[Rfam]
RNA sequence: GAGUGUCAUGUCAUCACACCUUAUCACUAACACCUCAUUGCCAUGUCAUCACCUCCAAUGAUGUGGCAAUGAUGUGCCAAUGAAUAGGAGUGAUGAUGUAAUACUUUAU
Dot-bracket structure: ..((((.((((((((((.(((..(((.(..(((.(((((((((((((((........))))))))))))))).)))..).)))..))).)))))))))).)))).....

This 109-nucleotide RNA sequence from Glycine max belongs to the Rfam family "MIR4387 microRNA precursor family". Clan: MIR4387 microRNA precursor clan. Pairs were carried over by alignment from the consensus structure, which was predicted with RNAalifold. Its family is annotated with RISC complex and miRNA-mediated post-transcriptional gene silencing in the Gene Ontology.